[Rfam]
RNA sequence: CACGCACAGGGCAAACCAUUCGAAAGGGUGGGACGCAAAGCCACCGGCCUAAACCAAAUGAAUUGGUAGGUAGCGGGGCUGCCGAUG
Numbered sequence: 001c002a003c004g005c006a007c008a009g010g011g012c013a014a015a016c017c018a019u020u021c022g023a024a025a026g027g028g029u030g031g032g033a034c035g036c037a038a039a040g041c042c043a044c045c046g047g048c049c050u051a052a053a054c055c056a057a058a059u060g061a062a063u064u065g066g067u068a069g070g071u072a073g074c075g076g077g078g079c080u081g082c083c084g085a086u087g
Base pairs, nucleotide, nucleotide: 001087003084004083011036012035016031017030018029019028020027021026034073039080040079041078042077044076045075046074047071048070049069050068051067